RNA sequence: AACUGUAACCAAUGUAAGUUGCUCUGGACAAGAGCAUCUGCUAAAUGCCUAUAA
Number, nucleotide and partner (000 for none) at each position: 001a000002a000003c000004u000005g000006u000007a000008a000009c000010c000011a000012a000013u043014g041015u040016a039017a000018g000019u000020u036021g035022c034023u033024c032025u031026g000027g000028a000029c000030a000031a025032g024033a023034g022035c021036a020037u000038c000039u016040g015041c014042u000043a013044a000045a000046u000047g000048c000049c000050u000051a000052u000053a000054a000
RNA: UnaL2 LINE 3' element
Organism: Megalops atlanticus